RNA sequence: ACCACAUGGUGUCCGUUCAAAAAUUUAUGGCAGUGGCGGGGGACCCACCUUCCGGUUUUCGAAGUUAGAAAGCCUUGGGGUUAAGUGCCCGGACCCGCAAGGGGAUCGGUUGCCGAGUGACUCCCACUCGAACCCGACAGCUCACCUCGUAGGCAUCAGGAGAGGCAAC
Numbered sequence: 001a002c003c004a005c006a007u008g009g010u011g012u013c014c015g016u017u018c019a020a021a022a023a024u025u026u027a028u029g030g031c032a033g034u035g036g037c038g039g040g041g042g043a044c045c046c047a048c049c050u051u052c053c054g055g056u057u058u059u060c061g062a063a064g065u066u067a068g069a070a071a072g073c074c075u076u077g078g079g080g081u082u083a084a085g086u087g088c089c090c091g092g093a094c095c096c097g098c099a100a101g102g103g104g105a106u107c108g109g110u111u112g113c114c115g116a117g118u119g120a121c122u123c124c125c126a127c128u129c130g131a132a133c134c135c136g137a138c139a140g141c142u143c144a145c146c147u148c149g150u151a152g153g154c155a156u157c158a159g160g161a162g163a164g165g166c167a168a169c
Base pairs, nucleotide, nucleotide: 003035004034005033036150037149038148039147040146041145046077047076078135079134080133086112087111089109090108091107092106115129116128117127118126
c-di-AMP riboswitch aptamer (ydaO/yuaA leader): a 169-nucleotide RNA sequence from Arthrobacter sp. MYb227. This family represents a conserved RNA structure found upstream of the ydaO and yuaA genes in Bacillus subtilis and related genes in other bacteria. The match comes from Rfam's covariance-model search (46 bits).